[Rfam]
RNA sequence: CGGGGAAAGAAGACCCUGUUAAGCUUAACUCUAGUUUAACAUUGUAAAAAGACAUAGGGGGUGUAGAAUAGGUAGGAGCUUUAGCGCCAGUAAAAUACCACUACCCUUAUCGUUUUUUUACUUAUUUGAUAAAGCGGAGCUGGGCCUUACCGCCCAACUUCUAGCGUUAAGGUCCUUCGUGGGCCAAUCUGGGUUGAAGACAUUGUUAGGUGGGGAGUUUAGCUGGGGCGGCACAUCUGUUAAACUAUAACGCAGGUGUCCUAAGGGGGACUCAUGGAGAACAGAAAUCUCCAGUAGAGCAAAAGGGCAAAAGUCCCCUUGAUUUUGAUUUUCAGUGUAAAUACAAACCAUAAAAGUGUAGCCUAUUAAUCCUUUAGUCCCUCAAAAUUUGAGGCUAGAGGUGCUAGAAAAGUUACUACAGGGAUAACUAGCUUGUGGCAGCCAAGCGUUCAUAGCGACGUUGCUUUUUGAUCCUUCGAUGUCGGCUCUUCCUAUCAUACCGAAGCAGAAUUCGGUAAGCGUUGGAUUGUUCACCCACUAAUAGGGAACGUAAGCUGGGUUUAGACCGUUGUAAGACAGGUUAGUUUUACCCUA
Numbered sequence: 001c002g003g004g005g006a007a008a009g010a011a012g013a014c015c016c017u018g019u020u021a022a023g024c025u026u027a028a029c030u031c032u033a034g035u036u037u038a039a040c041a042u043u044g045u046a047a048a049a050a051g052a053c054a055u056a057g058g059g060g061g062u063g064u065a066g067a068a069u070a071g072g073u074a075g076g077a078g079c080u081u082u083a084g085c086g087c088c089a090g091u092a093a094a095a096u097a098c099c100a101c102u103a104c105c106c107u108u109a110u111c112g113u114u115u116u117u118u119u120a121c122u123u124a125u126u127u128g129a130u131a132a133a134g135c136g137g138a139g140c141u142g143g144g145c146c147u148u149a150c151c152g153c154c155c156a157a158c159u160u161c162u163a164g165c166g167u168u169a170a171g172g173u174c175c176u177u178c179g180u181g182g183g184c185c186a187a188u189c190u191g192g193g194u195u196g197a198a199g200a201c202a203u204u205g206u207u208a209g210g211u212g213g214g215g216a217g218u219u220u221a222g223c224u225g226g227g228g229c230g231g232c233a234c235a236u237c238u239g240u241u242a243a244a245c246u247a248u249a250a251c252g253c254a255g256g257u258g259u260c261c262u263a264a265g266g267g268g269g270a271c272u273c274a275u276g277g278a279g280a281a282c283a284g285a286a287a288u289c290u291c292c293a294g295u296a297g298a299g300c301a302a303a304a305g306g307g308c309a310a311a312a313g314u315c316c317c318c319u320u321g322a323u324u325u326u327g328a329u330u331u332u333c334a335g336u337g338u339a340a341a342u343a344c345a346a347a348c349c350a351u352a353a354a355a356g357u358g359u360a361g362c363c364u365a366u367u368a369a370u371c372c373u374u375u376a377g378u379c380c381c382u383c384a385a386a387a388u389u390u391g392a393g394g395c396u397a398g399a400g401g402u403g404c405u406a407g408a409a410a411a412g413u414u415a416c417u418a419c420a421g422g423g424a425u426a427a428c429u430a431g432c433u434u435g436u437g438g439c440a441g442c443c444a445a446g447c448g449u450u451c452a453u454a455g456c457g458a459c460g461u462u463g464c465u466u467u468u469u470g471a472u473c474c475u476u477c478g479a480u481g482u483c484g485g486c487u488c489u490u491c492c493u494a495u496c497a498u499a500c501c502g503a504a505g506c507a508g509a510a511u512u513c514g515g516u517a518a519g520c521g522u523u524g525g526a527u528u529g530u531u532c533a534c535c536c537a538c539u540a541a542u543a544g545g546g547a548a549c550g551u552a553a554g555c556u557g558g559g560u561u562u563a564g565a566c567c568g569u570u571g572u573a574a575g576a577c578a579g580g581u582u583a584g585u586u587u588u589a590c591c592c593u594a
Stems, first nucleotide, its partner, number of pairs: 003593003007588002015422004020418002022414005028218004035210007044121010054110007071102003075098001078085002125198005135191004143154002146152001171185005222232003235257006260361001266318006272298002275293006299308002323347003328342004349358003372400006380394004431472001433470001435469001437465006446456002483558001484556004488550001489547005496521001499516006523537003527533001564582004568577003
Eukaryotic large subunit ribosomal RNA: a 594-nucleotide part of an RNA from Dothidotthia symphoricarpi. It scores 3102 bits against the family's covariance model. The family's consensus secondary structure is taken from published work.